About this RNA: Rfam assigns this 249-nucleotide sequence from Daucus carota to the family "RNase MRP". The family's RNA type in Rfam is ribozyme. The family's consensus secondary structure is taken from published work. RNase MRP is an enzymatically active ribonucleoprotein with two distinct roles in eukaryotes. In mitochondria it plays a direct role in the initiation of mitochondrial DNA replication. In the nucleus it is involved in precursor rRNA processing, where it cleaves the internal transcribed spacer 1 between 18S and 5.8S rRNAs. Despite distinct functions, RNase MRP has been shown to be evolutionarily related to RNase P. Like eukaryotic RNase P, RNase MRP is not catalytically active without associated protein subunits.
[Rfam]
RNA sequence: CAACCACAAGAUGGCGUGAUUGGGCCAUGGCAAAGUAGUUUGUCCGGCCCAGGAAAGUCCCCGGGCCCUUAUCUGCAGAGAUGCAGGCCUGGAAACAGGUACGGCUUGGUGAAGAAAUCUAAACUCUUGGGUUUGGGCUGAGACAAGUGUGGAGCCUUCGGAUUUCUCUCAAGUCAAGUUGGCCGAUAACACAGUCAUUCACGUGGUCCAAUAAUGGAUUAACUGAACGGGGCUUACACUCUUGUGGUU
Numbered sequence: 001c002a003a004c005c006a007c008a009a010g011a012u013g014g015c016g017u018g019a020u021u022g023g024g025c026c027a028u029g030g031c032a033a034a035g036u037a038g039u040u041u042g043u044c045c046g047g048c049c050c051a052g053g054a055a056a057g058u059c060c061c062c063g064g065g066c067c068c069u070u071a072u073c074u075g076c077a078g079a080g081a082u083g084c085a086g087g088c089c090u091g092g093a094a095a096c097a098g099g100u101a102c103g104g105c106u107u108g109g110u111g112a113a114g115a116a117a118u119c120u121a122a123a124c125u126c127u128u129g130g131g132u133u134u135g136g137g138c139u140g141a142g143a144c145a146a147g148u149g150u151g152g153a154g155c156c157u158u159c160g161g162a163u164u165u166c167u168c169u170c171a172a173g174u175c176a177a178g179u180u181g182g183c184c185g186a187u188a189a190c191a192c193a194g195u196c197a198u199u200c201a202c203g204u205g206g207u208c209c210a211a212u213a214a215u216g217g218a219u220u221a222a223c224u225g226a227a228c229g230g231g232g233c234u235u236a237c238a239c240u241c242u243u244g245u246g247g248u249u
Stems, first nucleotide, its partner, number of pairs: 002249010014204006021051006029044006055235003059232004074085004087100005103175003111169001113167003123163001125161002135157004206219005